[Rfam]
RNA sequence: AUGCCCAGUGAUUAUAAAGAGACGCGUUAUUCUGAGGGAGAACUGGUACCAGGUUUCCUUUCUCUUGUAUCUUCUUUUUUUCACUCCUUUGUCUUUGUUCCCUUUCUCCUCCUCCCCCCUCCAUCUAUUCACCACUUUUAACUGGUAACUAGUGUCCGCUGAACGUGAUUAUGAGAUAUGAGGGCAU
Numbered sequence: 001a002u003g004c005c006c007a008g009u010g011a012u013u014a015u016a017a018a019g020a021g022a023c024g025c026g027u028u029a030u031u032c033u034g035a036g037g038g039a040g041a042a043c044u045g046g047u048a049c050c051a052g053g054u055u056u057c058c059u060u061u062c063u064c065u066u067g068u069a070u071c072u073u074c075u076u077u078u079u080u081u082c083a084c085u086c087c088u089u090u091g092u093c094u095u096u097g098u099u100c101c102c103u104u105u106c107u108c109c110u111c112c113u114c115c116c117c118c119c120u121c122c123a124u125c126u127a128u129u130c131a132c133c134a135c136u137u138u139u140a141a142c143u144g145g146u147a148a149c150u151a152g153u154g155u156c157c158g159c160u161g162a163a164c165g166u167g168a169u170u171a172u173g174a175g176a177u178a179u180g181a182g183g184g185c186a187u
Stems, first nucleotide, its partner, number of pairs: 001187006035103005
Dot-bracket structure: ((((((............................(((((...........................................................)))))..............................................................................))))))
Shown here is a 187-nucleotide RNA from Lepisosteus oculatus, a member of the family "Small nucleolar RNA SNORD97".
Rfam 15.1 lists 639 matches to the family in 614 species.
The family's RNA type in Rfam is C/D-box small nucleolar RNA.
NCBI's taxonomy places the organism under Eukaryota, Chordata, Teleostomi, Holostei, Lepisosteus.